Plant signal recognition particle RNA: a 305-nucleotide sequence from Carnegiea gigantea. Clan: SRP clan. Rfam links the family to the GO terms signal recognition particle, endoplasmic reticulum targeting and SRP-dependent cotranslational protein targeting to membrane, signal sequence recognition. It scores 191 bits against the family's covariance model. NCBI's taxonomy places the organism under Eukaryota, Euphyllophyta, eudicotyledons, Echinocereeae, Carnegiea. The family's RNA type in Rfam is non-coding RNA gene. The family has 63 seed sequences and 4,988 matches in Rfam 15.1.
RNA sequence: ACCGAGCUGGGUAGCAUUAGCUUGUAACUCAAGUGAGGGCAUCAAGGUGAUGGGACUUUGCUUAAUUUCACAUGGUAUGGCUGCAUGUUGCGGUCUCUUGGCUUGCCCAUUCCAUGCUGAGAGUUGGGCUGAGUGGGUUAGGCGAAGGCCUGGUCUAAACAGCCCCUGGAUAAGAGGGCAUUGCAUCAGGCUGGCUUCACAGAGCAGCGAAUACCUCCCGCCCUCGGUGGUAGAAGCAUAACAAGUCGAGGCAUCCAUCGUCCAUCAUUACCAUGUGGAGGGAGCUCAACCGAACUAUCACCUUU
Numbered sequence: 001a002c003c004g005a006g007c008u009g010g011g012u013a014g015c016a017u018u019a020g021c022u023u024g025u026a027a028c029u030c031a032a033g034u035g036a037g038g039g040c041a042u043c044a045a046g047g048u049g050a051u052g053g054g055a056c057u058u059u060g061c062u063u064a065a066u067u068u069c070a071c072a073u074g075g076u077a078u079g080g081c082u083g084c085a086u087g088u089u090g091c092g093g094u095c096u097c098u099u100g101g102c103u104u105g106c107c108c109a110u111u112c113c114a115u116g117c118u119g120a121g122a123g124u125u126g127g128g129c130u131g132a133g134u135g136g137g138u139u140a141g142g143c144g145a146a147g148g149c150c151u152g153g154u155c156u157a158a159a160c161a162g163c164c165c166c167u168g169g170a171u172a173a174g175a176g177g178g179c180a181u182u183g184c185a186u187c188a189g190g191c192u193g194g195c196u197u198c199a200c201a202g203a204g205c206a207g208c209g210a211a212u213a214c215c216u217c218c219c220g221c222c223c224u225c226g227g228u229g230g231u232a233g234a235a236g237c238a239u240a241a242c243a244a245g246u247c248g249a250g251g252c253a254u255c256c257a258u259c260g261u262c263c264a265u266c267a268u269u270a271c272c273a274u275g276u277g278g279a280g281g282g283a284g285c286u287c288a289a290c291c292g293a294a295c296u297a298u299c300a301c302c303u304u305u
Stems, first nucleotide, its partner, number of pairs: 002039002004023007028037003044304010056292001058289003061284003066279001068278010079263002082260002087255001089253002098249008108236001110235003114231001115229007123221002126165006134157010174217004182211001184209001186207001191202003